[Rfam]
RNA sequence: UCAGCGAAACGGCAAACUUAUUGAAAGAUAAGGACGCAAAACUAUAGGGCCUUACCAAGAGGAUGGCAGCCAGUUACCGAA
Numbered sequence: 001u002c003a004g005c006g007a008a009a010c011g012g013c014a015a016a017c018u019u020a021u022u023g024a025a026a027g028a029u030a031a032g033g034a035c036g037c038a039a040a041a042c043u044a045u046a047g048g049g050c051c052u053u054a055c056c057a058a059g060a061g062g063a064u065g066g067c068a069g070c071c072a073g074u075u076a077c078c079g080a081a
Stems, first nucleotide, its partner, number of pairs: 012037002017032006040075004047071002049067003056061001
Shown here is an 81-nucleotide RNA from Alkalibaculum sporogenes, a member of the family "c-di-GMP-I riboswitch aptamer". A search with the family's covariance model found it, with a score of 69 bits.